[Rfam]
RNA sequence: CACAACACUAUAUAGUCUUUCGAUAUAUCUCAAAUGAUAUGGAUUUGAAGUUUCUACCCGGCACCGUAAAUGACCGGACUAUCGGAAAGGCGAUUAUCUCA
Number, nucleotide and partner (000 for none) at each position: 001c000002a000003c000004a000005a000006c000007a000008c000009u000010a000011u000012a000013u000014a000015g000016u000017c000018u087019u086020u085021c084022g083023a082024u081025a080026u000027a000028u000029c000030u048031c047032a046033a045034a044035u043036g000037a000038u000039a000040u000041g000042g000043a035044u034045u033046u032047g031048a030049a000050g000051u000052u000053u000054c000055u000056a000057c000058c077059c076060g075061g074062c072063a071064c000065c000066g000067u000068a000069a000070a000071u063072g062073a000074c061075c060076g059077g058078a000079c000080u025081a024082u023083c022084g021085g020086a019087a018088a000089g000090g000091c000092g000093a000094u000095u000096a000097u000098c000099u000100c000101a000

This 101-nucleotide RNA from Lachnospiraceae bacterium G11 belongs to the Rfam family "Purine riboswitch aptamer". A search with the family's covariance model found it, with a score of 69 bits. Pairs were carried over by alignment from the consensus structure, which is taken from published work.